[Rfam]
mir-7398 microRNA precursor family: a 59-nucleotide RNA sequence from Vombatus ursinus. A search with the family's covariance model found it, with a score of 61 bits. The organism belongs to Vombatus, within Eukaryota. Gene Ontology terms of the family: RISC complex and miRNA-mediated post-transcriptional gene silencing.

RNA sequence: UGUGUAGAGGCAUGAAAGGUGCUGUGUUUGCUCUCAGUAAAUUUCUUGCCUCUCUCCGU
Number, nucleotide and partner (000 for none) at each position: 001u000002g056003u000004g054005u000006a053007g052008a051009g050010g049011c048012a047013u000014g045015a044016a043017a042018g000019g000020u000021g038022c037023u036024g000025u000026g000027u000028u000029u000030g000031c000032u000033c000034u000035c000036a023037g022038u021039a000040a000041a000042u017043u016044u015045c014046u000047u012048g011049c010050c009051u008052c007053u006054c004055u000056c002057c000058g000059u000